[Rfam]
RNA: tRNA
RNA sequence: GGCUCCGUAGCUCAGCAGGAUAGAGCAAUGGUUUCCUAAACCAGAGGUCGCAGGUUCGAAUCCUGCCGGGGCCA
Numbered sequence: 001g002g003c004u005c006c007g008u009a010g011c012u013c014a015g016c017a018g019g020a021u022a023g024a025g026c027a028a029u030g031g032u033u034u035c036c037u038a039a040a041c042c043a044g045a046g047g048u049c050g051c052a053g054g055u056u057c058g059a060a061u062c063c064u065g066c067c068g069g070g071g072c073c074a
Stems, first nucleotide, its partner, number of pairs: 001073007010026004029043004050066005